mir-8364 microRNA precursor family: a 61-nucleotide RNA sequence from Pristionchus pacificus. Lineage of the source: Eukaryota > Metazoa > Rhabditida > Diplogasteroidea > Pristionchus. Gene Ontology terms of the family: miRNA-mediated post-transcriptional gene silencing and RISC complex. The base pairs follow the family's consensus structure, which was predicted with RNAalifold.
RNA sequence: UCUUCAUUUCGCUCACUCUCUCACCGGUCGGAGAGGCGAGAACGUGUGUGAGAUGAAGAGA
Dot-bracket structure: (((((((..(.(.(((..((((...............))))..))).).)..)))))))..
Numbered sequence: 001u002c003u004u005c006a007u008u009u010c011g012c013u014c015a016c017u018c019u020c021u022c023a024c025c026g027g028u029c030g031g032a033g034a035g036g037c038g039a040g041a042a043c044g045u046g047u048g049u050g051a052g053a054u055g056a057a058g059a060g061a
Stems, first nucleotide, its partner, number of pairs: 001059007010050001012048001014046003019041004